[Rfam]
RNA: c-di-GMP-I riboswitch aptamer
RNA sequence: UGUUCGAAAAGGCAAACCUGCCGAAAGGCAGGGACGCAAAAUCACAGUCUAAGGGUUGUUUCAUUGCCUACGACCGAUGGAUUACCGAA
Numbered sequence: 001u002g003u004u005c006g007a008a009a010a011g012g013c014a015a016a017c018c019u020g021c022c023g024a025a026a027g028g029c030a031g032g033g034a035c036g037c038a039a040a041a042u043c044a045c046a047g048u049c050u051a052a053g054g055g056u057u058g059u060u061u062c063a064u065u066g067c068c069u070a071c072g073a074c075c076g077a078u079g080g081a082u083u084a085c086c087g088a089a
Base pairs, nucleotide, nucleotide: 012037013036017032018031019030020029021028022027040083041082042081043080045079046078047074048073049072054068055067056066